[Rfam]
RNA sequence: AGAGUAGGCGUAGGCGGUUGCAGAUCAGUCACAAAAACUGAUUUGAGGAAAGUCCGGGCUCCCGAAAGACCAAACUUGCUGGAUAACGUCCAGUGCGAGCGAUCGUGAGGAUAGUGCCACAGAAAGAUACCGCCAGGAUUGGGGACUAGGUACUGGGGACUGGGGACUGGGUAAGAAAUUGCCCAAUCCCUAAUCCCUGAUACCCAAUCCCUAAGCUCUGGUAAGGGUGCAAAGGUGCGGUAAGAGCGCACCAGCAACGUCGAGAGGCGUUGGCUCGGUAAACCCCGGUUGGGAGCAAGGCGAAGGAACUAUGGUUGGUCUUUUACCAGUUCCGCCAAAACAGAGCCGCUAGAGGCGUUUGGUAACAAACGUCCCAGAUAGAUAACCGCCCUCAUGUAGAGAAGUUACUUGUAACAUUUCUACAUUCGAGAACAGAACCCGGCUUACUACCAACUCUUUCC
Number, nucleotide and partner (000 for none) at each position: 001a457002g456003a455004g454005u453006a000007g451008g450009c000010g448011u000012a000013g390014g389015c388016g387017g386018u385019u384020g000021c045022a044023g043024a042025u041026c040027a039028g038029u037030c000031a000032c000033a000034a000035a000036a000037a029038c028039u027040g026041a025042u024043u023044u022045g021046a000047g000048g000049a000050a445051a444052g443053u000054c442055c441056g440057g439058g438059c295060u294061c293062c292063c000064g000065a000066a000067a000068g322069a321070c000071c000072a000073a290074a289075c288076u000077u287078g286079c093080u092081g091082g090083a089084u000085a000086a000087c000088g000089u083090c082091c081092a080093g079094u108095g106096c105097g104098a103099g000100c000101g000102a000103u098104c097105g096106u095107g000108a094109g285110g284111a000112u000113a000114g283115u282116g279117c278118c277119a000120c000121a000122g000123a000124a000125a000126g000127a000128u000129a000130c226131c225132g222133c221134c220135a219136g218137g217138a000139u215140u214141g000142g000143g000144g000145a000146c000147u000148a000149g000150g000151u000152a000153c000154u000155g000156g000157g000158g000159a000160c000161u000162g000163g000164g000165g000166a000167c000168u000169g000170g000171g000172u000173a000174a000175g000176a000177a000178a000179u000180u000181g000182c000183c000184c000185a000186a000187u000188c000189c000190c000191u000192a000193a000194u000195c000196c000197c000198u000199g000200a000201u000202a000203c000204c000205c000206a000207a000208u000209c000210c000211c000212u000213a000214a140215g139216c000217u137218c136219u135220g134221g133222u132223a000224a000225g131226g130227g000228u000229g000230c000231a000232a000233a000234g252235g251236u250237g249238c248239g247240g000241u000242a000243a000244g000245a000246g000247c239248g238249c237250a236251c235252c234253a000254g274255c272256a271257a270258c269259g268260u267261c266262g000263a000264g000265a000266g261267g260268c259269g258270u257271u256272g255273g000274c254275u000276c000277g118278g117279u116280a000281a000282a115283c114284c110285c109286c078287g077288g075289u074290u073291g000292g062293g061294a060295g059296c000297a000298a000299g347300g346301c345302g000303a000304a000305g333306g332307a331308a330309c329310u328311a000312u000313g327314g326315u325316u000317g323318g000319u000320c000321u069322u068323u317324u000325a315326c314327c313328a310329g309330u308331u307332c306333c305334g000335c000336c000337a000338a000339a000340a000341c000342a000343g000344a000345g301346c300347c299348g000349c000350u000351a000352g000353a000354g373355g372356c371357g370358u369359u368360u367361g366362g000363u000364a000365a000366c361367a360368a359369a358370c357371g356372u355373c354374c000375c000376a000377g000378a000379u000380a000381g000382a000383u000384a019385a018386c017387c016388g015389c014390c013391c000392u000393c000394a000395u000396g000397u000398a000399g000400a000401g000402a000403a000404g000405u000406u000407a000408c000409u000410u000411g000412u000413a000414a000415c000416a000417u000418u000419u000420c000421u000422a000423c000424a000425u000426u000427c000428g000429a000430g000431a000432a000433c000434a000435g000436a000437a000438c058439c057440c056441g055442g054443c052444u051445u050446a000447c000448u010449a000450c008451c007452a000453a005454c004455u003456c002457u001458u000459u000460c000461c000

This 461-nucleotide RNA from Tolypothrix tenuis belongs to the Rfam family "Bacterial RNase P class A". It scores 252 bits against the family's covariance model. Rfam classes the family as a ribozyme. Pairs were carried over by alignment from the consensus structure, which is taken from published work.